The record is a 92-nucleotide RNA from a Solemya velesiana gill symbiont, which matches "TPP riboswitch aptamer (THI element)" in Rfam. NCBI's taxonomy places the organism under Bacteria, Pseudomonadati, Pseudomonadota, Gammaproteobacteria, sulfur-oxidizing symbionts.
[Rfam]
RNA sequence: UCUGCGAGCUAGGGGUGACCAUUUUGGGCUGAGAUACACCCUUUGCACCUGAUCCGGUUAAUGCUGGCGGAGGAAAGCUGCGGGAGCCGUAA
Dot-bracket structure: ......((((((((.((.(((...))).)......)..)))).....(((...((((......))))...)))..)))).............
The family's consensus secondary structure is taken from published work.